[Rfam]
RNA sequence: UUCUUAUCAAGAGAGACGGAGGGAUUGGCCCGACGAAGUCUCAGCAACCAGCCCUUAUUGGUAUGGUGCUAAUUCCAAUGACGUACACCGUCUAAAGAUAAGAA
Numbered sequence: 001u002u003c004u005u006a007u008c009a010a011g012a013g014a015g016a017c018g019g020a021g022g023g024a025u026u027g028g029c030c031c032g033a034c035g036a037a038g039u040c041u042c043a044g045c046a047a048c049c050a051g052c053c054c055u056u057a058u059u060g061g062u063a064u065g066g067u068g069c070u071a072a073u074u075c076c077a078a079u080g081a082c083g084u085a086c087a088c089c090g091u092c093u094a095a096a097g098a099u100a101a102g103a104a
Stems, first nucleotide, its partner, number of pairs: 001104008013042005021031003025078004043070004048066002050062001052060001074096001080092004
Dot-bracket structure: ((((((((....(((((...(((.[[[[)))......)))))((((.(((.(.......).)..))))))...(]]]].((((.....))))...)))))))))
Source information: The record is a 104-nucleotide RNA sequence from Sporosarcina luteola, which matches "SAM riboswitch aptamer (S box leader)" in Rfam. Taxonomically the source falls in Sporosarcina (Bacteria, Bacillati, Caryophanales, Caryophanaceae). The family's consensus secondary structure is taken from published work. It scores 89 bits against the family's covariance model.